RNA sequence: AGUUGAUGCAGUCGAUGGUUUUCCUCCCAGUGCCAUCGUAUCAGCUGUUCCCCUCUGGAGGUUAUUGACCUUCACACCUUAAAGGGCCCUGGUUUUCCAGCGGCCCUAUUUU
Numbered sequence: 001a002g003u004u005g006a007u008g009c010a011g012u013c014g015a016u017g018g019u020u021u022u023c024c025u026c027c028c029a030g031u032g033c034c035a036u037c038g039u040a041u042c043a044g045c046u047g048u049u050c051c052c053c054u055c056u057g058g059a060g061g062u063u064a065u066u067g068a069c070c071u072u073c074a075c076a077c078c079u080u081a082a083a084g085g086g087c088c089c090u091g092g093u094u095u096u097c098c099a100g101c102g103g104c105c106c107u108a109u110u111u112u
Stems, first nucleotide, its partner, number of pairs: 001046005007040003015036004056074007083107006089100004

Annotation: Shown here is a 112-nucleotide RNA from Rhizobium etli, a member of the family "Alphaproteobacterial ar15". A reference for the family is del Val et al. (2007), "Identification of differentially expressed small non-coding RNAs in the legume endosymbiont Sinorhizobium meliloti by comparative genomics", Mol Microbiol. Gene Ontology term of the family: protein binding. The family's RNA type in Rfam is small RNA. The family is grouped with related families in Rfam's "suhB sRNA clan". Pairs were carried over by alignment from the consensus structure.